The family of this 132-nucleotide RNA sequence from Mus musculus is "Small nucleolar RNA SNORA17". On this family, see Ofengand and Bakin, J Mol Biol 1997: "Mapping to nucleotide resolution of pseudouridine residues in large subunit ribosomal RNAs from representative eukaryotes, prokaryotes, archaebacteria, mitochondria and chloroplasts". About the family: snoRNA ACA 17 belongs to the H/ACA family of snoRNAs and is predicted to guide pseudouridylation of the 28S rRNA at positions U4659 and U4598. It shares the same host gene together with ACA43. Rfam 15.1 lists 5,784 matches to the family in 673 species.

RNA sequence: CCUGCCCCUAGAAGUAUCGUAGUUGUGGCCACUGUAUCACAUGUGCAUCAGGAGAUGACAGAGAGGAGAAAGGUUAUGUCUACAUUUAGUGUCCUGACUUAUGAACAUCUGAAUGGUUAGUAUCCUAACACU
Numbered sequence: 001c002c003u004g005c006c007c008c009u010a011g012a013a014g015u016a017u018c019g020u021a022g023u024u025g026u027g028g029c030c031a032c033u034g035u036a037u038c039a040c041a042u043g044u045g046c047a048u049c050a051g052g053a054g055a056u057g058a059c060a061g062a063g064a065g066g067a068g069a070a071a072g073g074u075u076a077u078g079u080c081u082a083c084a085u086u087u088a089g090u091g092u093c094c095u096g097a098c099u100u101a102u103g104a105a106c107a108u109c110u111g112a113a114u115g116g117u118u119a120g121u122a123u124c125c126u127a128a129c130a131c132u
Stems, first nucleotide, its partner, number of pairs: 002061003006057001008054002014048002019046003024041005068129001071126003075122003083115002086112004090107003094103001

By type it is an H/ACA-box small nucleolar RNA. Its family is annotated with nucleolus and RNA processing in the Gene Ontology. Clan: SNORA17 clan.